[Rfam]
RNA sequence: ACUGGGAGUCGUGGUGUGCUCCUGUAAUCCAGCUACUUGGAGGUCGGGUAAUCUGGAUGGUUUGAGGCUGGGAGUCCUGGUUGGCAGUUCUCUGCGUCGACCGAGCGUCCGCACUAAGCUUGUCAUCAAUAUGGUAACCCUGGAGGAGUCCGGGGUAACCAGGUUGGCUAAGGAGGGGCGAACCGGGCCAGGGGGGAAACCCAGCAGCCAAAAGUCCCCGUGGUGAGCAGUAGUGGGAUAGCGCUUGGGAGUAGGGUCUGUCAGUCAGCCCAGCCAAUAGAAUCGGACAGUUACCUUU
Numbered sequence: 001a002c003u004g005g006g007a008g009u010c011g012u013g014g015u016g017u018g019c020u021c022c023u024g025u026a027a028u029c030c031a032g033c034u035a036c037u038u039g040g041a042g043g044u045c046g047g048g049u050a051a052u053c054u055g056g057a058u059g060g061u062u063u064g065a066g067g068c069u070g071g072g073a074g075u076c077c078u079g080g081u082u083g084g085c086a087g088u089u090c091u092c093u094g095c096g097u098c099g100a101c102c103g104a105g106c107g108u109c110c111g112c113a114c115u116a117a118g119c120u121u122g123u124c125a126u127c128a129a130u131a132u133g134g135u136a137a138c139c140c141u142g143g144a145g146g147a148g149u150c151c152g153g154g155g156u157a158a159c160c161a162g163g164u165u166g167g168c169u170a171a172g173g174a175g176g177g178g179c180g181a182a183c184c185g186g187g188c189c190a191g192g193g194g195g196g197a198a199a200c201c202c203a204g205c206a207g208c209c210a211a212a213a214g215u216c217c218c219c220g221u222g223g224u225g226a227g228c229a230g231u232a233g234u235g236g237g238a239u240a241g242c243g244c245u246u247g248g249g250a251g252u253a254g255g256g257u258c259u260g261u262c263a264g265u266c267a268g269c270c271c272a273g274c275c276a277a278u279a280g281a282a283u284c285g286g287a288c289a290g291u292u293a294c295c296u297u298u
Stems, first nucleotide, its partner, number of pairs: 001044003004023006028041003046296007058285006066275007077268011089256001091255005097249001101248008109237002112235005118228009127166004132161004137156008168172001175218005186209003193202003

Metazoan signal recognition particle RNA: a 298-nucleotide sequence from Bemisia tabaci.
Taxonomically the source falls in Bemisia (Eukaryota, Eumetazoa, Hexapoda, Paraneoptera).
From the family's description: The signal recognition particle (SRP) is a universally conserved ribonucleoprotein. It is involved in the co-translational targeting of proteins to membranes.
Clan: SRP clan.